The record is a 191-nucleotide RNA from Streptomonospora nanhaiensis, which matches "Actinobacteria sRNA Ms_IGR-5" in Rfam.
The match comes from Rfam's covariance-model search (81 bits).
NCBI's taxonomy places the organism under Bacteria, Actinomycetota, Actinomycetes, Nocardiopsidaceae, Streptomonospora.
It is annotated as a small RNA.
For this family Rfam cites "Identification of small RNAs in Mycobacterium smegmatis using heterologous Hfq" (Li et al., RNA, 2013).
[Rfam]
RNA sequence: ACGCAGGAAAGGAGGUGGUCCUGACAGUGAAGACGCUUAGGACUUGCGAGGUGUCCGUCCGCUAGGGCGACACGAGUGAUCGGUUCGCCCUGGCGAAUCCACAUCGGACACCCGGAUCCCCGGGCGCCGGACCUUGUCCAGCCGGCAGGCCCCGCACAAGGCGCGGAGCCAAGCCCGGGGGUCUGUCCUGU
Numbered sequence: 001a002c003g004c005a006g007g008a009a010a011g012g013a014g015g016u017g018g019u020c021c022u023g024a025c026a027g028u029g030a031a032g033a034c035g036c037u038u039a040g041g042a043c044u045u046g047c048g049a050g051g052u053g054u055c056c057g058u059c060c061g062c063u064a065g066g067g068c069g070a071c072a073c074g075a076g077u078g079a080u081c082g083g084u085u086c087g088c089c090c091u092g093g094c095g096a097a098u099c100c101a102c103a104u105c106g107g108a109c110a111c112c113c114g115g116a117u118c119c120c121c122g123g124g125c126g127c128c129g130g131a132c133c134u135u136g137u138c139c140a141g142c143c144g145g146c147a148g149g150c151c152c153c154g155c156a157c158a159a160g161g162c163g164c165g166g167a168g169c170c171a172a173g174c175c176c177g178g179g180g181g182u183c184u185g186u187c188c189u190g191u
Stems, first nucleotide, its partner, number of pairs: 014059005060095011073082002113185013126146005